[Rfam]
RNA sequence: CUAUAAUUAUCGCUAAAUCUAUUUAAGAGCGGGGGACCCAAUUAAUUACGGAUAUAUCCGUGUGGGUGAAUCCUUUAAAAGGAAGGGCUUCUAUUUUCUCUUAGUCCUAACCCGAAAGCUAACCCCGUCAGCGUUUAAGAGGAAACAA
Numbered sequence: 001c002u003a004u005a006a007u008u009a010u011c012g013c014u015a016a017a018u019c020u021a022u023u024u025a026a027g028a029g030c031g032g033g034g035g036a037c038c039c040a041a042u043u044a045a046u047u048a049c050g051g052a053u054a055u056a057u058c059c060g061u062g063u064g065g066g067u068g069a070a071u072c073c074u075u076u077a078a079a080a081g082g083a084a085g086g087g088c089u090u091c092u093a094u095u096u097u098c099u100c101u102u103a104g105u106c107c108u109a110a111c112c113c114g115a116a117a118g119c120u121a122a123c124c125c126c127g128u129c130a131g132c133g134u135u136u137a138a139g140a141g142g143a144a145a146c147a148a
Stems, first nucleotide, its partner, number of pairs: 011133004018028003029128006039062002064113003072082004085107004
The record is a 148-nucleotide RNA from Bacilli bacterium VT-13-104, which matches "c-di-AMP riboswitch aptamer (ydaO/yuaA leader)" in Rfam. It scores 83 bits against the family's covariance model. Pairs were carried over by alignment from the consensus structure. Gene Ontology terms of the family: cyclic-di-AMP binding and regulation of gene expression.